This 176-nucleotide RNA sequence from Clostridium sp. KNHs216 belongs to the Rfam family "Lysine riboswitch aptamer". Pairs were carried over by alignment from the consensus structure, which is taken from published work.
RNA sequence: UUCAAAGAUAGAGGCGCGAUUUUAAAGAGUAACGGAUUCCAGGCUGCCAAAGCCGUUUAUCGUCCGUGAAAGGUAAACUCGCCGAAGGGGGUUUCGGGGCAGGAAACCGCCUGGUUGUUUUUGUGAACAGCAGAACAACUGUCAUCAUGUUGAUAUGAUGGAGCGCUAUCGGCUAA
Numbered sequence: 001u002u003c004a005a006a007g008a009u010a011g012a013g014g015c016g017c018g019a020u021u022u023u024a025a026a027g028a029g030u031a032a033c034g035g036a037u038u039c040c041a042g043g044c045u046g047c048c049a050a051a052g053c054c055g056u057u058u059a060u061c062g063u064c065c066g067u068g069a070a071a072g073g074u075a076a077a078c079u080c081g082c083c084g085a086a087g088g089g090g091g092u093u094u095c096g097g098g099g100c101a102g103g104a105a106a107c108c109g110c111c112u113g114g115u116u117g118u119u120u121u122u123g124u125g126a127a128c129a130g131c132a133g134a135a136c137a138a139c140u141g142u143c144a145u146c147a148u149g150u151u152g153a154u155a156u157g158a159u160g161g162a163g164c165g166c167u168a169u170c171g172g173c174u175a176a
Base pairs, nucleotide, nucleotide: 007170008169009168010167011166016082017081018080019079021077022076023075024074032067033066034065035064036063037062086112087111088110090108091107092106093105094104095103113140114139115138116137117136118135119134121133122132123131124130142161143160144159145158146157147156148155